[Rfam]
Rfam assigns this 44-nucleotide RNA from Wenxinia saemankumensis to the family "Guanidine-II riboswitch aptamer (mini-ykkC)".

RNA sequence: GAGGGGACGACCUCUCGCGACCGCAUCCCGCCGGGACGACCCGG
Numbered sequence: 001g002a003g004g005g006g007a008c009g010a011c012c013u014c015u016c017g018c019g020a021c022c023g024c025a026u027c028c029c030g031c032c033g034g035g036a037c038g039a040c041c042c043g044g
Stems, first nucleotide, its partner, number of pairs: 001016006031044005
Its family is annotated with regulation of gene expression in the Gene Ontology. The source organism's lineage runs through Bacteria, Pseudomonadota, Alphaproteobacteria, Roseobacteraceae and Wenxinia. The match comes from Rfam's covariance-model search (38 bits). The family's consensus secondary structure is taken from published work.